[Rfam]
Nucleotides: 091
Base pairs, nucleotide, nucleotide: 001091002090003089004088
Number, partner (000 for none) and nucleotide at each position: 001091a002090a003089g004088c005000u006000g007000u008000g009000a010000u011000g012000a013000a014000g015000a016000u017000c018000u019000a020000g021000c022000u023000g024000u025000u026000a027000c028000c029000g030000g031000a032000g033000a034000c035000g036000g037000u038000c039000u040000c041000u042000a043000a044000c045000g046000a047000u048000u049000u050000c051000g052000u053000c054000g055000u056000u057000g058000a059000u060000g061000g062000c063000a064000a065000c066000a067000c068000a069000a070000c071000c072000c073000c074000c075000u076000a077000a078000a079000a080000a081000g082000u083000u084000c085000u086000g087000a088004g089003c090002u091001u